[Rfam]
RNA: MIR396 microRNA precursor family
RNA sequence: GUUUGUAUUCUUCCACAGCUUUCUUGAACUGCAUGGCCAAUUAUUAUUACCCAAAAAAAGAUUAAAGCAAUUUGAUGUUGUAUUUAAAGUGCAGUUCAAUAAAGCUGUGGGAAAAUACAGAUA
Numbered sequence: 001g002u003u004u005g006u007a008u009u010c011u012u013c014c015a016c017a018g019c020u021u022u023c024u025u026g027a028a029c030u031g032c033a034u035g036g037c038c039a040a041u042u043a044u045u046a047u048u049a050c051c052c053a054a055a056a057a058a059a060g061a062u063u064a065a066a067g068c069a070a071u072u073u074g075a076u077g078u079u080g081u082a083u084u085u086a087a088a089g090u091g092c093a094g095u096u097c098a099a100u101a102a103a104g105c106u107g108u109g110g111g112a113a114a115a116u117a118c119a120g121a122u123a
Base pairs, nucleotide, nucleotide: 003120004119005118006117007116013110014109015108017106018105019104020103021102022101024099025098026097027096029094030093031092032091033090
Dot-bracket structure: ..(((((.....(((.((((((.((((.(((((........................................................))))).)))).)))))).))).....)))))...